[Rfam]
RNA sequence: CCGCUAUGCCCUCCGUGGGCGUUUCCUCCCUGAGCCUGGGCCACGCAGUGUCUGCGUGGCCUUUUUUUAUGUUUCA
Numbered sequence: 001c002c003g004c005u006a007u008g009c010c011c012u013c014c015g016u017g018g019g020c021g022u023u024u025c026c027u028c029c030c031u032g033a034g035c036c037u038g039g040g041c042c043a044c045g046c047a048g049u050g051u052c053u054g055c056g057u058g059g060c061c062u063u064u065u066u067u068u069a070u071g072u073u074u075c076a
Stems, first nucleotide, its partner, number of pairs: 008020004039061009
RNA: Makes More Granules Regulator RNA (mmgR)
Organism: Eilatimonas milleporae